[Rfam]
RNA sequence: AUUUGCCAAUUAUACUGACUACAACAAUCCGGGAAUGGCUGACUAGCCUCCGCAGUUACACCAUCAACAGCUGGGUUAAGUUGAAAGCCCAAUU
Numbered sequence: 001a002u003u004u005g006c007c008a009a010u011u012a013u014a015c016u017g018a019c020u021a022c023a024a025c026a027a028u029c030c031g032g033g034a035a036u037g038g039c040u041g042a043c044u045a046g047c048c049u050c051c052g053c054a055g056u057u058a059c060a061c062c063a064u065c066a067a068c069a070g071c072u073g074g075g076u077u078a079a080g081u082u083g084a085a086a087g088c089c090c091a092a093u094u
Stems, first nucleotide, its partner, number of pairs: 003092003007087001
Source information:
This 94-nucleotide sequence from Oryza punctata belongs to the Rfam family "Small nucleolar RNA Z256". The base pairs follow the family's consensus structure. By type it is a C/D-box small nucleolar RNA. A reference for the family is Chen et al. (2003), "The high diversity of snoRNAs in plants: identification and comparative study of 120 snoRNA genes from Oryza sativa", Nucleic Acids Res.